[Rfam]
RNA sequence: GGAAGCUCCGCACAAAUGGAAUGGAUGAGACAUUGUACGGAGC
Numbered sequence: 001g002g003a004a005g006c007u008c009c010g011c012a013c014a015a016a017u018g019g020a021a022u023g024g025a026u027g028a029g030a031c032a033u034u035g036u037a038c039g040g041a042g043c
Stems, first nucleotide, its partner, number of pairs: 006042005012036003
Rfam assigns this 43-nucleotide RNA sequence to the family "uup RNA".